[Rfam]
RNA sequence: UUCUUAUCGAGAGUGGUGGAGGGACUGGCCCGAUGAAACCCGGCAGCCGAUUUGGAAAAUGACCGUUAAGGUCUUUUUUUCCAAAUGACAUGGUGCUAAAUCCUUCAAAAUGGCAGAUGCAUAAUGUAUAGCAUCCUGCGAUUUUGGCAGAUGAGAA
Numbered sequence: 001u002u003c004u005u006a007u008c009g010a011g012a013g014u015g016g017u018g019g020a021g022g023g024a025c026u027g028g029c030c031c032g033a034u035g036a037a038a039c040c041c042g043g044c045a046g047c048c049g050a051u052u053u054g055g056a057a058a059a060u061g062a063c064c065g066u067u068a069a070g071g072u073c074u075u076u077u078u079u080u081c082c083a084a085a086u087g088a089c090a091u092g093g094u095g096c097u098a099a100a101u102c103c104u105u106c107a108a109a110a111u112g113g114c115a116g117a118u119g120c121a122u123a124a125u126g127u128a129u130a131g132c133a134u135c136c137u138g139c140g141a142u143u144u145u146g147g148c149a150g151a152u153g154a155g156a157a
Stems, first nucleotide, its partner, number of pairs: 001157008013041001015040003021031003027103002042097004047093002049089001051087001101149001106146006
The record is a 157-nucleotide sequence from Paenibacillus bovis, which matches "SAM riboswitch aptamer (S box leader)" in Rfam. The organism belongs to Paenibacillus, within Bacteria. Rfam links the family to the GO term regulation of gene expression. A search with the family's covariance model found it, with a score of 72 bits.